[Rfam]
RNA sequence: ACACGGGAAAGGAGGUGGUCCGAAGAAUGAUCGAUUCUUGGAUGCGUGAGGUGGCUGCCCGCUAGCAGCCCCAGCAACAUCGCGGGUGGAAGUGCCCGUGAAGGCUGCUGGUGAAUCCAUCGCAGUCACCCGACCCGCAGGCGAUCCGGUCUUCACAUCCACCGGAGCGGUCUCCCCGGAGGCCAGCGCCUGCGGGUCGCUGCAU
Numbered sequence: 001a002c003a004c005g006g007g008a009a010a011g012g013a014g015g016u017g018g019u020c021c022g023a024a025g026a027a028u029g030a031u032c033g034a035u036u037c038u039u040g041g042a043u044g045c046g047u048g049a050g051g052u053g054g055c056u057g058c059c060c061g062c063u064a065g066c067a068g069c070c071c072c073a074g075c076a077a078c079a080u081c082g083c084g085g086g087u088g089g090a091a092g093u094g095c096c097c098g099u100g101a102a103g104g105c106u107g108c109u110g111g112u113g114a115a116u117c118c119a120u121c122g123c124a125g126u127c128a129c130c131c132g133a134c135c136c137g138c139a140g141g142c143g144a145u146c147c148g149g150u151c152u153u154c155a156c157a158u159c160c161a162c163c164g165g166a167g168c169g170g171u172c173u174c175c176c177c178g179g180a181g182g183c184c185a186g187c188g189c190c191u192g193c194g195g196g197u198c199g200c201u202g203c204a205u
Base pairs, nucleotide, nucleotide: 014059015058016057017056018055019054060113061112062111063110064109065108066107068105069104070103074099075098131199132198133197134196135195136194137193138192139191140190141189142188143187145166146165147164148163149162150161
A member of the RNA family "Actinobacteria sRNA Ms_IGR-5" from Nocardioides sp. PD653, 205 nucleotides long. NCBI's taxonomy places the organism under Bacteria, Bacillati, Actinomycetota, Actinomycetes, Nocardioides. The match comes from Rfam's covariance-model search (127 bits). By type it is a small RNA.